RNA sequence: UACAGAGCGUGUGACUGGCGGAAAAGGUGGGAAACCACAGGGGAGCACGCAGAAUUUCGAUUGCCGGCCGCCUGGGCACCAUGU
Numbered sequence: 001u002a003c004a005g006a007g008c009g010u011g012u013g014a015c016u017g018g019c020g021g022a023a024a025a026g027g028u029g030g031g032a033a034a035c036c037a038c039a040g041g042g043g044a045g046c047a048c049g050c051a052g053a054a055u056u057u058c059g060a061u062u063g064c065c066g067g068c069c070g071c072c073u074g075g076g077c078a079c080c081a082u083g084u
Base pairs, nucleotide, nucleotide: 007050008049009048010047011046012045015042016041017072018071019070020069021068027038028037029036030035062078063077064076065075
Shown here is an 84-nucleotide sequence from Clostridium sp. AM33-3, a member of the family "ZMP/ZTP riboswitch aptamer (pfl RNA motif)". The family's consensus secondary structure is taken from published work. It scores 65 bits against the family's covariance model.